The family of this 104-nucleotide sequence from Thiomonas bhubaneswarensis is "Vibrio RNA AS9".

RNA sequence: CUGCGCGCAGCGCUGGGCGGUCAGCGUGAGGCAGAUCAGGCCGCGCGCAUGCGUGGCCAUGAAAUUGAUCGCCUGCGGCGUGAUGUGCUCGGCGGCGAUGACCA
Numbered sequence: 001c002u003g004c005g006c007g008c009a010g011c012g013c014u015g016g017g018c019g020g021u022c023a024g025c026g027u028g029a030g031g032c033a034g035a036u037c038a039g040g041c042c043g044c045g046c047g048c049a050u051g052c053g054u055g056g057c058c059a060u061g062a063a064a065u066u067g068a069u070c071g072c073c074u075g076c077g078g079c080g081u082g083a084u085g086u087g088c089u090c091g092g093c094g095g096c097g098a099u100g101a102c103c104a
Stems, first nucleotide, its partner, number of pairs: 003058001006055003010027006035050002040046002066104002069101002071096002076091002078088003
Overview: Identified by direct cloning an parallel sequencing experiments with 5S/tRNA depletion. Confirmed by Northern blot. The source organism's lineage runs through Bacteria, Pseudomonadati, Betaproteobacteria, Burkholderiales and Thiomonas. By type it is an antisense RNA.